[Rfam]
RNA: RNase MRP
RNA sequence: CUCUCGCUCAAAGAAUCGCAUUCCAAGCCCACAAACAGAAAGCAUCCCUCGGGGUGCUUUCACCACUUCAUGCUUUGGGAGAAAGUCCCCGGACACCCUUCUUCGCGAAGGAACUGCGGAAACGCGCCGCCAUAGAAGCACCUCGCGGCUUCUCCUCUCAUCAAUUCUUCAUGUCUCUUUCCUCCACCUGCACACCGUUCGUACUGCAUUCCUACCUUUGGCGGUUAGAUAUUGGGACCUGGGGAGACCACAUGGACGAUGAUAUGAGUCCGCGCUCUUUUAGGAACCGGUAUUGCGGUCGUCACUGGGACGUUUGCAGGAGGUGUGUGGACUGUUCUUGGGGAGCUUGGGGAUGUUCUGGUGUUGGGAAUCUUUUUGUCGAGAUCGAUAGUUAUGCGAUUGUCCUAUCCUCCAUGCAAAUGGAUGGAUGGGAUAACUCGAUGGGGCUUAUUCUUGAUGCGAGG
Numbered sequence: 001c002u003c004u005c006g007c008u009c010a011a012a013g014a015a016u017c018g019c020a021u022u023c024c025a026a027g028c029c030c031a032c033a034a035a036c037a038g039a040a041a042g043c044a045u046c047c048c049u050c051g052g053g054g055u056g057c058u059u060u061c062a063c064c065a066c067u068u069c070a071u072g073c074u075u076u077g078g079g080a081g082a083a084a085g086u087c088c089c090c091g092g093a094c095a096c097c098c099u100u101c102u103u104c105g106c107g108a109a110g111g112a113a114c115u116g117c118g119g120a121a122a123c124g125c126g127c128c129g130c131c132a133u134a135g136a137a138g139c140a141c142c143u144c145g146c147g148g149c150u151u152c153u154c155c156u157c158u159c160a161u162c163a164a165u166u167c168u169u170c171a172u173g174u175c176u177c178u179u180u181c182c183u184c185c186a187c188c189u190g191c192a193c194a195c196c197g198u199u200c201g202u203a204c205u206g207c208a209u210u211c212c213u214a215c216c217u218u219u220g221g222c223g224g225u226u227a228g229a230u231a232u233u234g235g236g237a238c239c240u241g242g243g244g245a246g247a248c249c250a251c252a253u254g255g256a257c258g259a260u261g262a263u264a265u266g267a268g269u270c271c272g273c274g275c276u277c278u279u280u281u282a283g284g285a286a287c288c289g290g291u292a293u294u295g296c297g298g299u300c301g302u303c304a305c306u307g308g309g310a311c312g313u314u315u316g317c318a319g320g321a322g323g324u325g326u327g328u329g330g331a332c333u334g335u336u337c338u339u340g341g342g343g344a345g346c347u348u349g350g351g352g353a354u355g356u357u358c359u360g361g362u363g364u365u366g367g368g369a370a371u372c373u374u375u376u377u378g379u380c381g382a383g384a385u386c387g388a389u390a391g392u393u394a395u396g397c398g399a400u401u402g403u404c405c406u407a408u409c410c411u412c413c414a415u416g417c418a419a420a421u422g423g424a425u426g427g428a429u430g431g432g433a434u435a436a437c438u439c440g441a442u443g444g445g446g447c448u449u450a451u452u453c454u455u456g457a458u459g460c461g462a463g464g
Base pairs, nucleotide, nucleotide: 002464003463004462005461006460007459008457009456010455011454014401015400016399017398018397019396022079023077025075026074027073028072038061039060040059041058042057043056044055045054046053047052083449084448085447087446088445089444090443115126116125117124118123127148128147129146130145132143329373330372331371336369337368338367339366340365341364345362346361347360403433404432405431406430407429408428409427410426